[Rfam]
RNA sequence: ACGAUUGCAUCCCGCGUGCCGCUUGCCUAUAUAGGGGAUGUCCUUCGGGACUAUGGACAUAAACGCGCUCGUAAUAAACGGAUCGGACCCGGGGGCGGUACCCGGCGGCUCCACCAACCACUUCUUUCGGCAGCAUCCUUCGUUUGGGGAUCACUUUCGAAAUCGUGGGGCCGAAAUAGGAUCGACGGACGUCUAAAGGGGUUAGCUUUGUCUCGGCUGUCUGCCACCGUUACCGGCGAAAACAGUACAAUUGCAAACGACAAUCGUGCUCCGGUUGCUCUGGCUGCGUAAGCAGUCCGGGUUGAACCGACUUUAAGCCCUAGCGCCUAGCCGCGUUAGGCGGGGUUCGCAGGUACCUGGCAACAGAAACCUGCACU
Numbered sequence: 001a002c003g004a005u006u007g008c009a010u011c012c013c014g015c016g017u018g019c020c021g022c023u024u025g026c027c028u029a030u031a032u033a034g035g036g037g038a039u040g041u042c043c044u045u046c047g048g049g050a051c052u053a054u055g056g057a058c059a060u061a062a063a064c065g066c067g068c069u070c071g072u073a074a075u076a077a078a079c080g081g082a083u084c085g086g087a088c089c090c091g092g093g094g095g096c097g098g099u100a101c102c103c104g105g106c107g108g109c110u111c112c113a114c115c116a117a118c119c120a121c122u123u124c125u126u127u128c129g130g131c132a133g134c135a136u137c138c139u140u141c142g143u144u145u146g147g148g149g150a151u152c153a154c155u156u157u158c159g160a161a162a163u164c165g166u167g168g169g170g171c172c173g174a175a176a177u178a179g180g181a182u183c184g185a186c187g188g189a190c191g192u193c194u195a196a197a198g199g200g201g202u203u204a205g206c207u208u209u210g211u212c213u214c215g216g217c218u219g220u221c222u223g224c225c226a227c228c229g230u231u232a233c234c235g236g237c238g239a240a241a242a243c244a245g246u247a248c249a250a251u252u253g254c255a256a257a258c259g260a261c262a263a264u265c266g267u268g269c270u271c272c273g274g275u276u277g278c279u280c281u282g283g284c285u286g287c288g289u290a291a292g293c294a295g296u297c298c299g300g301g302u303u304g305a306a307c308c309g310a311c312u313u314u315a316a317g318c319c320c321u322a323g324c325g326c327c328u329a330g331c332c333g334c335g336u337u338a339g340g341c342g343g344g345g346u347u348c349g350c351a352g353g354u355a356c357c358u359g360g361c362a363a364c365a366g367a368a369a370c371c372u373g374c375a376c377u
Stems, first nucleotide, its partner, number of pairs: 040051004055213005065206002067202004079191002083188003089105005106173009214229003220239002223237003343358004349374006
Dot-bracket structure: .......................................((((....))))...(((((.....((((((........((..(((...(((((.......)))))(((((((((..................................................)))))))))............))).)).......))))..))..)))))[[[...((.(((.]]].....))))).......................................................................................................[[[[..((((((]]]]..........))))))...
Alphaproteobacteria transfer-messenger RNA: a 377-nucleotide sequence from Falsiruegeria litorea. The match comes from Rfam's covariance-model search (292 bits). By type it is a non-coding RNA gene. NCBI's taxonomy places the organism under Bacteria, Alphaproteobacteria, Rhodobacterales, Roseobacteraceae, Falsiruegeria litorea.